A member of the RNA family "mir-7 microRNA precursor family" from Rhipicephalus sanguineus, 88 nucleotides long. This family represents the microRNA (miRNA) precursor mir-7. A reference for the family is Lagos-Quintana et al. (2001), "Identification of novel genes coding for small expressed RNAs", Science.
[Rfam]
RNA sequence: UGCGGCACUUCCUGUCUGGAAGACUAGUGAUUUUGUUGUUCUGUUAUGUGGGAAACAAGAAAUCACUAUCUUCGGACAGUGGGCUGCC
Numbered sequence: 001u002g003c004g005g006c007a008c009u010u011c012c013u014g015u016c017u018g019g020a021a022g023a024c025u026a027g028u029g030a031u032u033u034u035g036u037u038g039u040u041c042u043g044u045u046a047u048g049u050g051g052g053a054a055a056c057a058a059g060a061a062a063u064c065a066c067u068a069u070c071u072u073c074g075g076a077c078a079g080u081g082g083g084c085u086g087c088c
Stems, first nucleotide, its partner, number of pairs: 002087005008082002012079008021071003027066007036058005